RNA sequence: AGGCAGCCUCCUUGAUACGAUUAAAUGACAAGAGAGGUGUUAAACUGCUCGUAAGUUAAAUCCUUUUGCUCCUCAAUUCAGACCUGCCGAGACUUUCUCUAAAGCUGUACUAGUAAGCUUAAGAACUUU
Numbered sequence: 001a002g003g004c005a006g007c008c009u010c011c012u013u014g015a016u017a018c019g020a021u022u023a024a025a026u027g028a029c030a031a032g033a034g035a036g037g038u039g040u041u042a043a044a045c046u047g048c049u050c051g052u053a054a055g056u057u058a059a060a061u062c063c064u065u066u067u068g069c070u071c072c073u074c075a076a077u078u079c080a081g082a083c084c085u086g087c088c089g090a091g092a093c094u095u096u097c098u099c100u101a102a103a104g105c106u107g108u109a110c111u112a113g114u115a116a117g118c119u120u121a122a123g124a125a126c127u128u129u
Stems, first nucleotide, its partner, number of pairs: 002041004007037002009034001011032004016027002063123003068118003080111002084107001086105002091097002
RNA: Small nucleolar RNA snoR77
Organism: Arachis hypogaea